[Rfam]
RNA sequence: UACCACAUCAAAGCUAAUUGGGAAACUCAUCAAAUUUUAUAGAAAUACCGAGACACUCUUGUCUGUCGAUGGCGGGCCCCACGCCGCAAGGCGUUGAUUUCGAUCGCAGGCGGAUUACAAAGAUUGGCAAGACCUCAAAACCUGUCGUUCGGAGUUUCGUCACAUUCCUUUGAUGUGGACCUUAAA
Numbered sequence: 001u002a003c004c005a006c007a008u009c010a011a012a013g014c015u016a017a018u019u020g021g022g023a024a025a026c027u028c029a030u031c032a033a034a035u036u037u038u039a040u041a042g043a044a045a046u047a048c049c050g051a052g053a054c055a056c057u058c059u060u061g062u063c064u065g066u067c068g069a070u071g072g073c074g075g076g077c078c079c080c081a082c083g084c085c086g087c088a089a090g091g092c093g094u095u096g097a098u099u100u101c102g103a104u105c106g107c108a109g110g111c112g113g114a115u116u117a118c119a120a121a122g123a124u125u126g127g128c129a130a131g132a133c134c135u136c137a138a139a140a141c142c143u144g145u146c147g148u149u150c151g152g153a154g155u156u157u158c159g160u161c162a163c164a165u166u167c168c169u170u171u172g173a174u175g176u177g178g179a180c181c182u183u184a185a186a
Stems, first nucleotide, its partner, number of pairs: 057132007065124003070119002077113002080110001082093003096105003